[Rfam]
Nucleotides: 124
Base pairs, nucleotide, nucleotide: 010115016109017108018107019106020105021104022103023102024101026099027098028097029096030095031094032093033092034091
Number, partner (000 for none) and nucleotide at each position: 001000u002000g003000g004000a005000a006000g007000a008000a009000u010115c011000u012000g013000u014000u015000a016109a017108g018107c019106u020105c021104a022103g023102g024101a025000g026099g027098g028097a029096u030095a031094g032093c033092g034091c035000c036000a037000u038000g039000g040000a041000u042000g043000a044000u045000c046000c047000a048000u049000c050000u051000u052000u053000c054000a055000a056000g057000c058000u059000u060000u061000c062000a063000u064000g065000c066000a067000u068000g069000u070000a071000c072000g073000u074000u075000a076000u077000u078000u079000g080000a081000u082000c083000c084000u085000c086000a087000u088000a089000u090000a091034g092033c093032g094031c095030u096029a097028u098027c099026c100000a101024u102023c103022c104021u105020g106019a107018g108017u109016u110000u111000c112000a113000u114000c115010g116000g117000u118000u119000c120000u121000u122000c123000u124000u
Shown here is a 124-nucleotide RNA from Gossypium lobatum, a member of the family "MIR390 microRNA precursor family". Taxonomically the source falls in Gossypium (Eukaryota, Viridiplantae, Gunneridae, Pentapetalae). It scores 104 bits against the family's covariance model. On this family, see Gustafson et al., Nucleic Acids Res 2005: "ASRP: the Arabidopsis Small RNA Project Database". Pairs were carried over by alignment from the consensus structure, which was predicted with WAR. Rfam 15.1 lists 649 matches to the family in 206 species.